[Rfam]
RNA sequence: AGCUGGUCCAAAGGUAGUGAGUUGUCUCAACUGAUUGUUCACAGUCACUUAGAGGUCAAGCUCCUUGUUCUAUUCUUUCCCCCCCGCCCCCCAUCUCACUACUGCACUUGACUAGUCUUAA
Numbered sequence: 001a002g003c004u005g006g007u008c009c010a011a012a013g014g015u016a017g018u019g020a021g022u023u024g025u026c027u028c029a030a031c032u033g034a035u036u037g038u039u040c041a042c043a044g045u046c047a048c049u050u051a052g053a054g055g056u057c058a059a060g061c062u063c064c065u066u067g068u069u070c071u072a073u074u075c076u077u078u079c080c081c082c083c084c085c086g087c088c089c090c091c092c093a094u095c096u097c098a099c100u101a102c103u104g105c106a107c108u109u110g111a112c113u114a115g116u117c118u119u120a121a
Stems, first nucleotide, its partner, number of pairs: 002116007010109002014105002016100006
A member of the RNA family "Y RNA" from Cercocebus atys, 121 nucleotides long. For this family Rfam cites "Conserved features of Y RNAs: a comparison of experimentally derived secondary structures" (Teunissen et al., Nucleic Acids Res, 2000). By type it is a non-coding RNA gene. A search with the family's covariance model found it, with a score of 53 bits. The family has 104 seed sequences and 26,986 matches in Rfam 15.1. Y RNAs are components of the Ro ribonucleoprotein particle (Ro RNP), in association with Ro60 and La proteins. The Y RNAs and Ro60 and La proteins are well conserved, but the function of the Ro RNP is not known. The base pairs follow the family's consensus structure, which is taken from published work.